[Rfam]
RNA sequence: GCAACUCGCUACGUCCCUUAUCUUCUGAAAUCUCUGUUUCGAUCACUAAUUGGUGUGAUCCCAGGGAUUCUCAGUGGAUUAGGGCAUCGAGUCAGCU
Numbered sequence: 001g002c003a004a005c006u007c008g009c010u011a012c013g014u015c016c017c018u019u020a021u022c023u024u025c026u027g028a029a030a031u032c033u034c035u036g037u038u039u040c041g042a043u044c045a046c047u048a049a050u051u052g053g054u055g056u057g058a059u060c061c062c063a064g065g066g067a068u069u070c071u072c073a074g075u076g077g078a079u080u081a082g083g084g085c086a087u088c089g090a091g092u093c094a095g096c097u
Stems, first nucleotide, its partner, number of pairs: 001096002004092005013085001015084004020079004025074004029069008041060006
Dot-bracket structure: ((.(((((....(.((((.((((.((((((((((((....((((((........)))))).)))))))).)))).)))).)))))..)))))..)).

This 97-nucleotide sequence from Pristionchus pacificus belongs to the Rfam family "mir-2240 microRNA precursor family". The family's consensus secondary structure was predicted with RNAalifold. It is one of the family's seed sequences.